The record is a 104-nucleotide sequence from Rhynchospora breviuscula, which matches "Small nucleolar RNA R44/J54/Z268 family" in Rfam. The match comes from Rfam's covariance-model search (72 bits). The source organism's lineage runs through Eukaryota, Tracheophyta, Cyperoideae, Rhynchosporeae and Rhynchospora. Pairs were carried over by alignment from the consensus structure, which was predicted with PFOLD. Rfam 15.1 lists 1,168 matches to the family in 228 species.

RNA sequence: AAAGCAAGUUAUGAGAAAAGUAGACAGGGACUCAGUACUUCCUUUUGAAUUUUUCAAAAGGAGGAAUGAUGAUUUAGUCGAAAUGGGAAUCUCUCUGAUGCUUU
Numbered sequence: 001a002a003a004g005c006a007a008g009u010u011a012u013g014a015g016a017a018a019a020g021u022a023g024a025c026a027g028g029g030a031c032u033c034a035g036u037a038c039u040u041c042c043u044u045u046u047g048a049a050u051u052u053u054u055c056a057a058a059a060g061g062a063g064g065a066a067u068g069a070u071g072a073u074u075u076a077g078u079c080g081a082a083a084u085g086g087g088a089a090u091c092u093c094u095c096u097g098a099u100g101c102u103u104u
Base pairs, nucleotide, nucleotide: 002103003102004101005100006099